[Rfam]
RNA sequence: GGGGCCGAUUAGGAUUCGACGCCGGUAGCGAAACUCUAGGUGCAUGCCGAGUUGGUAACAGAACUCGUAAAUCCACUGUUGCAACUUUUAUAGUUGCCAAUGACGAAAACUACGGCGCGGAGUACAAGCUGGCUGCGUAAGCAGUCCUCUUGACCCGUUGCUUCUGGUAGCUUCGGCUCCAGCAAUCACUAGGGGAUGCCUGUAAACCCGAACUGAUUGUCAUACAGAACAGGAUCGUCGCGUAGCACGUUGUGGGCGAAGUGACUAAAACUUACACAACUCAUCCAAAGCACCCUGCCCGUCGGGCGGCUGCGGAUUAAAUCAGUAGACACGGCUAAGCAUGUAGUACCGACAGCGGAGUACUGGCGGACGGGGGUUCAAAUCCCCCCGGCUCCACCA
Numbered sequence: 001g002g003g004g005c006c007g008a009u010u011a012g013g014a015u016u017c018g019a020c021g022c023c024g025g026u027a028g029c030g031a032a033a034c035u036c037u038a039g040g041u042g043c044a045u046g047c048c049g050a051g052u053u054g055g056u057a058a059c060a061g062a063a064c065u066c067g068u069a070a071a072u073c074c075a076c077u078g079u080u081g082c083a084a085c086u087u088u089u090a091u092a093g094u095u096g097c098c099a100a101u102g103a104c105g106a107a108a109a110c111u112a113c114g115g116c117g118c119g120g121a122g123u124a125c126a127a128g129c130u131g132g133c134u135g136c137g138u139a140a141g142c143a144g145u146c147c148u149c150u151u152g153a154c155c156c157g158u159u160g161c162u163u164c165u166g167g168u169a170g171c172u173u174c175g176g177c178u179c180c181a182g183c184a185a186u187c188a189c190u191a192g193g194g195g196a197u198g199c200c201u202g203u204a205a206a207c208c209c210g211a212a213c214u215g216a217u218u219g220u221c222a223u224a225c226a227g228a229a230c231a232g233g234a235u236c237g238u239c240g241c242g243u244a245g246c247a248c249g250u251u252g253u254g255g256g257c258g259a260a261g262u263g264a265c266u267a268a269a270a271c272u273u274a275c276a277c278a279a280c281u282c283a284u285c286c287a288a289a290g291c292a293c294c295c296u297g298c299c300c301g302u303c304g305g306g307c308g309g310c311u312g313c314g315g316a317u318u319a320a321a322u323c324a325g326u327a328g329a330c331a332c333g334g335c336u337a338a339g340c341a342u343g344u345a346g347u348a349c350c351g352a353c354a355g356c357g358g359a360g361u362a363c364u365g366g367c368g369g370a371c372g373g374g375g376g377u378u379c380a381a382a383u384c385c386c387c388c389c390g391g392c393u394c395c396a397c398c399a
Base pairs, nucleotide, nucleotide: 001395002394003393004392005391006390007389020368021367022366023365024364025363026362027361035355039350040349041348043343044342045341046340047339048067049066050065051064052063055082056081057080058079059078060077061076128149131146132145133144134143135142136141183219184218185217186216187215188214192209193208194207199233200232201231202230203229237265238264239263240262241261249280250279251278252277253276283317284316285315286314289311290310291309294306295305296304297335298334299333301330302329303328372388373387374386375385376384
Dot-bracket structure: (((((((............((((((((.......(...(((.((((([[[[[..(((((((.]]]]]........))))))).............................................(..((((((....))))))..).................................((((((...(((....[[[[[...)))....)))))).........]]]]]...(((((.......[[[[[.......)))))..........]]]]]..((((..(((..((([[[.[[[)))..)))..))))..........]]]..]]]...)))))....)))....).....))))))))...(((((.......))))))))))))....